The family of this 251-nucleotide RNA sequence from [Collinsella] massiliensis is "raiA RNA". The match comes from Rfam's covariance-model search (143 bits).
RNA sequence: GUCCCCUCAGGCUGUGGUUGCCGAUGCGCUCGCGCAUCCUAGUCCAAGACAGACGCGGUCGAAAGGACCCACGUAAGUGCAUGCGUGCGCGCAUGCGCGAUCAUGGCGCGUCCUAGAGGUAAGACGCACCGUCCGUUGCCAGGGGUAAUUCCGCCCCGCGGGCGAGCGGGCAAGUCGUGACGCCGCCGCGGCGGCCGAGCAAACGCCCCAGUGCGCAGGUGUGGGGGAAAAGACCAGGUCAGCUGGGGGAC
Numbered sequence: 001g002u003c004c005c006c007u008c009a010g011g012c013u014g015u016g017g018u019u020g021c022c023g024a025u026g027c028g029c030u031c032g033c034g035c036a037u038c039c040u041a042g043u044c045c046a047a048g049a050c051a052g053a054c055g056c057g058g059u060c061g062a063a064a065g066g067a068c069c070c071a072c073g074u075a076a077g078u079g080c081a082u083g084c085g086u087g088c089g090c091g092c093a094u095g096c097g098c099g100a101u102c103a104u105g106g107c108g109c110g111u112c113c114u115a116g117a118g119g120u121a122a123g124a125c126g127c128a129c130c131g132u133c134c135g136u137u138g139c140c141a142g143g144g145g146u147a148a149u150u151c152c153g154c155c156c157c158g159c160g161g162g163c164g165a166g167c168g169g170g171c172a173a174g175u176c177g178u179g180a181c182g183c184c185g186c187c188g189c190g191g192c193g194g195c196c197g198a199g200c201a202a203a204c205g206c207c208c209c210a211g212u213g214c215g216c217a218g219g220u221g222u223g224g225g226g227g228a229a230a231a232g233a234c235c236a237g238g239u240c241a242g243c244u245g246g247g248g249g250a251c
Stems, first nucleotide, its partner, number of pairs: 001251006008245003012242003015236005046222001048220001049059001052112006068106002073101001077098009104229001125215005130164007168208004177200002184193003